RNA sequence: GGAUGGCCUUGCCUCCGAGCCCGGAAAGACCCCCCGGGCCUUCCGGGCCGGGCCUUUGGGCCCCGGGGUGGCGGGGGCAACCCCGCCGCCUGCCGCGGUCGCAAAGGAGGUGCGCAUGGGAAGAC
Numbered sequence: 001g002g003a004u005g006g007c008c009u010u011g012c013c014u015c016c017g018a019g020c021c022c023g024g025a026a027a028g029a030c031c032c033c034c035c036g037g038g039c040c041u042u043c044c045g046g047g048c049c050g051g052g053c054c055u056u057u058g059g060g061c062c063c064c065g066g067g068g069u070g071g072c073g074g075g076g077g078c079a080a081c082c083c084c085g086c087c088g089c090c091u092g093c094c095g096c097g098g099u100c101g102c103a104a105a106g107g108a109g110g111u112g113c114g115c116a117u118g119g120g121a122a123g124a125c
Base pairs, nucleotide, nucleotide: 004118011111012110013109014108015107016106019048020047021046022045023044024043025042026041050063051062052061053060054059066091067090068089069088070087071086072085073084074083075082076081092102093101

A member of the RNA family "Molybdenum/Tungsten riboswitch aptamer (Moco RNA motif)" from Thermus parvatiensis, 125 nucleotides long. The family's consensus secondary structure is taken from published work. The literature on the family includes a 2007 paper in Nucleic Acids Res by Weinberg et al., "Identification of 22 candidate structured RNAs in bacteria using the CMfinder comparative genomics pipeline".